miR-430 microRNA precursor family: a 70-nucleotide RNA from Astyanax mexicanus.
A reference for the family is Giraldez et al. (2005), "MicroRNAs regulate brain morphogenesis in zebrafish", Science.
Its family is annotated with RISC complex and miRNA-mediated post-transcriptional gene silencing in the Gene Ontology.
Lineage of the source: Eukaryota > Eumetazoa > Gnathostomata > Osteoglossocephalai > Astyanax.
It scores 59 bits against the family's covariance model.
RNA sequence: AUUGCUACUUUAACAAUAGUGCUGACCUUUUAGUAAAAGUUGGUAAGUGCUAUUUGUUGGGGUAGUUUGA
Numbered sequence: 001a002u003u004g005c006u007a008c009u010u011u012a013a014c015a016a017u018a019g020u021g022c023u024g025a026c027c028u029u030u031u032a033g034u035a036a037a038a039g040u041u042g043g044u045a046a047g048u049g050c051u052a053u054u055u056g057u058u059g060g061g062g063u064a065g066u067u068u069g070a
Base pairs, nucleotide, nucleotide: 004066005065006064007063008062009061010060011059013057014056015055016054018051019050020049021048022047023046025044026043027042